[Rfam]
RNA: PreQ1-III (pre queuosine) riboswitch aptamer
RNA sequence: GGGCAACUUAGGAUUUUAGGCCCGCCGCGCAUAUGGCGCGGACCACCCCCGCGGACCUGGCGGUGCCGCGGCGGGCAAAAUCUUUCCGCCGGAG
Numbered sequence: 001g002g003g004c005a006a007c008u009u010a011g012g013a014u015u016u017u018a019g020g021c022c023c024g025c026c027g028c029g030c031a032u033a034u035g036g037c038g039c040g041g042a043c044c045a046c047c048c049c050c051g052c053g054g055a056c057c058u059g060g061c062g063g064u065g066c067c068g069c070g071g072c073g074g075g076c077a078a079a080a081u082c083u084u085u086c087c088g089c090c091g092g093a094g
Stems, first nucleotide, its partner, number of pairs: 001023004011083006025041006046075003049071006